This 98-nucleotide sequence from Rousettus aegyptiacus belongs to the Rfam family "mir-544 microRNA precursor family". The source organism's lineage runs through Eukaryota, Dipnotetrapodomorpha, Amniota, Chiroptera and Rousettus. On this family, see Chiang et al., Genes Dev 2010: "Mammalian microRNAs: experimental evaluation of novel and previously annotated genes". The family has 16 seed sequences and 10,750 matches in Rfam 15.1. A search with the family's covariance model found it, with a score of 66 bits.

RNA sequence: AUCACGGGGAAAUCUUGUUAAAAUGCAGAUUCGGAUACAGUAGGUCUGGAGAGGAGCCCUAGACUCUGCAUUUCUAGCAAGUUCCCAGAUGACGUUGA
Numbered sequence: 001a002u003c004a005c006g007g008g009g010a011a012a013u014c015u016u017g018u019u020a021a022a023a024u025g026c027a028g029a030u031u032c033g034g035a036u037a038c039a040g041u042a043g044g045u046c047u048g049g050a051g052a053g054g055a056g057c058c059c060u061a062g063a064c065u066c067u068g069c070a071u072u073u074c075u076a077g078c079a080a081g082u083u084c085c086c087a088g089a090u091g092a093c094g095u096u097g098a
Stems, first nucleotide, its partner, number of pairs: 003091002009085001011083001014081007021073003025069005031063002